Background:
The family of this 100-nucleotide sequence from Branchiostoma belcheri is "mir-2060 microRNA precursor family". The match comes from Rfam's covariance-model search (71 bits). Lineage of the source: Eukaryota > Opisthokonta > Eumetazoa > Bilateria > Branchiostoma.

RNA sequence: GUGUGUGUGUGUGUGGAUGGCGUUCAGUACCAAGGACAGGUAUGUUUGCAUGUGUGUCUGUGUGGAUGGCGUUCAGCACCAAGGACAGGUAUGUUUGUAU
Numbered sequence: 001g002u003g004u005g006u007g008u009g010u011g012u013g014u015g016g017a018u019g020g021c022g023u024u025c026a027g028u029a030c031c032a033a034g035g036a037c038a039g040g041u042a043u044g045u046u047u048g049c050a051u052g053u054g055u056g057u058c059u060g061u062g063u064g065g066a067u068g069g070c071g072u073u074c075a076g077c078a079c080c081a082a083g084g085a086c087a088g089g090u091a092u093g094u095u096u097g098u099a100u
Stems, first nucleotide, its partner, number of pairs: 004091003008087003018081003022077003026073003030069003034061001036053003040049003